[Rfam]
RNA sequence: UCCGAUAAUGGCAAACUUGUUGAAAGGCAAGGACGCAAAGCUAAAGGGUCUAAGGUUCUGAUAAGAACGAAUGACAGCCUGGCUGCCGAAA
Numbered sequence: 001u002c003c004g005a006u007a008a009u010g011g012c013a014a015a016c017u018u019g020u021u022g023a024a025a026g027g028c029a030a031g032g033a034c035g036c037a038a039a040g041c042u043a044a045a046g047g048g049u050c051u052a053a054g055g056u057u058c059u060g061a062u063a064a065g066a067a068c069g070a071a072u073g074a075c076a077g078c079c080u081g082g083c084u085g086c087c088g089a090a091a
Stems, first nucleotide, its partner, number of pairs: 001091001003088002011036002016031006034077001039084004045080003048075003
RNA: c-di-GMP-I-GGC riboswitch aptamer
Organism: Paenibacillus nasutitermitis